[Rfam]
Background: This 86-nucleotide sequence from Thauera propionica belongs to the Rfam family "Glycine riboswitch aptamer". Clan: Glycine riboswitch clan. Rfam links the family to the GO term glycine biosynthetic process.
RNA sequence: GCGCGUCACGCGGGAGAGAACUCCCCCUGGAGUCGCCGAAGGCGCAACCCCCGGAACCGCUCAGGCAAAAGGACCGCGUGCGAAGU
Numbered sequence: 001g002c003g004c005g006u007c008a009c010g011c012g013g014g015a016g017a018g019a020a021c022u023c024c025c026c027c028u029g030g031a032g033u034c035g036c037c038g039a040a041g042g043c044g045c046a047a048c049c050c051c052c053g054g055a056a057c058c059g060c061u062c063a064g065g066c067a068a069a070a071g072g073a074c075c076g077c078g079u080g081c082g083a084a085g086u
Base pairs, nucleotide, nucleotide: 007080008079009078010077011076012075013074020033021032022031023030035066036065037064038062039061042060043059044058048054049053
Overview
The family has 44 seed sequences and 9,425 matches in Rfam 15.1. The pairing is the family consensus, mapped onto this sequence. The source organism's lineage runs through Bacteria, Pseudomonadati, Betaproteobacteria, Rhodocyclales and Thauera.